[Rfam]
RNA: TPP riboswitch aptamer (THI element)
Organism: Muribaculaceae bacterium Isolate-002
RNA sequence: GCAGCACAGGAGGGGUGUCCUCAUUGAAGGACUGAGAUUAUACCCUACGAACUUGAUGCGGUUAGUACCGCCGAAAGGAACUUGUGAUAUCUUUUUU
Numbered sequence: 001g002c003a004g005c006a007c008a009g010g011a012g013g014g015g016u017g018u019c020c021u022c023a024u025u026g027a028a029g030g031a032c033u034g035a036g037a038u039u040a041u042a043c044c045c046u047a048c049g050a051a052c053u054u055g056a057u058g059c060g061g062u063u064a065g066u067a068c069c070g071c072c073g074a075a076a077g078g079a080a081c082u083u084g085u086g087a088u089a090u091c092u093u094u095u096u097u
Base pairs, nucleotide, nucleotide: 006085007084008083009082010081011046012045013044014043016040017032018031019030020029021028052077053076054075058071059070060069061068